The family of this 86-nucleotide RNA from Dendroctonus ponderosae is "mir-277 microRNA precursor family".
Nucleotides: 086
Stems, first nucleotide, its partner, number of pairs: 008080001010078002015072009025061001027059002030056006
Number, partner (000 for none) and nucleotide at each position: 001000a002000g003000c004000g005000c006000c007000u008080c009000c010078g011077g012000c013000u014000c015072c016071g017070u018069g019068c020067c021066a022065g023064a024000g025061g026000u027059g028058c029000u030056u031055u032054u033053g034052c035051a036000c037000a038000u039000c040000c041000u042000u043000c044000a045000g046000c047000a048000c049000u050000a051035u052034g053033u054032a055031a056030a057000u058028g059027c060000a061025c062000u063000a064023u065022c066021u067020g068019g069018u070017a071016c072015g073000a074000c075000a076000g077011c078010c079000u080008g081000u082000c083000g084000c085000g086000u
Rfam links the family to the GO terms miRNA-mediated post-transcriptional gene silencing and RISC complex. The base pairs follow the family's consensus structure, which was predicted with RNAalifold. NCBI's taxonomy places the organism under Eukaryota, Insecta, Cucujiformia, Curculionoidea, Dendroctonus.